[Rfam]
RNA sequence: UAGGAGAGUCAGGGCCAGGAGCUCCCCCCUGAGCCCAGGGUAACUUUAAAGGUAUGGGGGCA
Numbered sequence: 001u002a003g004g005a006g007a008g009u010c011a012g013g014g015c016c017a018g019g020a021g022c023u024c025c026c027c028c029c030u031g032a033g034c035c036c037a038g039g040g041u042a043a044c045u046u047u048a049a050a051g052g053u054a055u056g057g058g059g060g061c062a
Base pairs, nucleotide, nucleotide: 008041009040010039012036013035014034015033016031017030018029019028022060023059024058025057026056
Rfam assigns this 62-nucleotide sequence from Nannospalax galili to the family "Gag/pol translational readthrough site". Lineage of the source: Eukaryota > Metazoa > Euarchontoglires > Spalacinae > Nannospalax. Its family is annotated with viral translational readthrough in the Gene Ontology.